Shown here is a 132-nucleotide RNA from Arenaria interpres, a member of the family "Small nucleolar RNA SNORA69".
RNA sequence: AAAGCAGGCUGCAAUUACAGUGCUUCAUUCUGUGGGAGUACUGCCAUUUCCCUGCUGAGAGUAACGCUGUUAAUGCUGUCUUCGGUUUCAUCUAUACGGUGCUGAAACCGUUUGUUCUUAGCAUUUACAAGU
Numbered sequence: 001a002a003a004g005c006a007g008g009c010u011g012c013a014a015u016u017a018c019a020g021u022g023c024u025u026c027a028u029u030c031u032g033u034g035g036g037a038g039u040a041c042u043g044c045c046a047u048u049u050c051c052c053u054g055c056u057g058a059g060a061g062u063a064a065c066g067c068u069g070u071u072a073a074u075g076c077u078g079u080c081u082u083c084g085g086u087u088u089c090a091u092c093u094a095u096a097c098g099g100u101g102c103u104g105a106a107a108c109c110g111u112u113u114g115u116u117c118u119u120a121g122c123a124u125u126u127a128c129a130a131g132u
Stems, first nucleotide, its partner, number of pairs: 003056006018043009068123006075116001083110008092101001
U69 is a member of the H/ACA class of small nucleolar RNAs (snoRNAs) which act as guides in the the modification of uridines to pseudouridines.
Lineage of the source: Eukaryota > Deuterostomia > Tetrapoda > Dinosauria > Arenaria.
A search with the family's covariance model found it, with a score of 86 bits.